HDV ribozyme from F. prausnitzii: an 83-nucleotide sequence from Argiope bruennichi. For this family Rfam cites "Widespread occurrence of self-cleaving ribozymes" (Webb et al., Science, 2009). It scores 45 bits against the family's covariance model. Its family is annotated with catalytic activity in the Gene Ontology.
[Rfam]
Nucleotides: 083
Base pairs, nucleotide, nucleotide: 001037002036004035005034006033007032019031020030021029044069045068046067047066048065049064050063051062052061053060054059
Number, partner (000 for none) and nucleotide at each position: 001037g002036g003000g004035g005034a006033a007032c008000g009000a010000a011000a012000g013000u014000a015000g016000c017000c018000c019031a020030c021029c022000u023000c024000c025000a026000c027000g028000u029021g030020g031019u032007g033006u034005u035004c036002c037001u038000g039000g040000g041000c042000a043000a044069c045068g046067a047066u048065g049064c050063a051062a052061u053060u054059u055000u056000c057000u058000g059054g060053a061052a062051u063050u064049g065048c066047g067046u068045c069044g070000g071000c072000u073000a074000a075000g076000a077000g078000g079000c080000u081000a082000u083000u